[Rfam]
RNA sequence: CGUUGAUGUGAUGAUAUGUUUGUCGGAAUGUUCUGUGUCGACUAAACAUAGCCUAGACUACAAUUAUCUGAUCAACG
Numbered sequence: 001c002g003u004u005g006a007u008g009u010g011a012u013g014a015u016a017u018g019u020u021u022g023u024c025g026g027a028a029u030g031u032u033c034u035g036u037g038u039c040g041a042c043u044a045a046a047c048a049u050a051g052c053c054u055a056g057a058c059u060a061c062a063a064u065u066a067u068c069u070g071a072u073c074a075a076c077g
Stems, first nucleotide, its partner, number of pairs: 001077006
RNA: Small nucleolar RNA Z155
Organism: Vanilla planifolia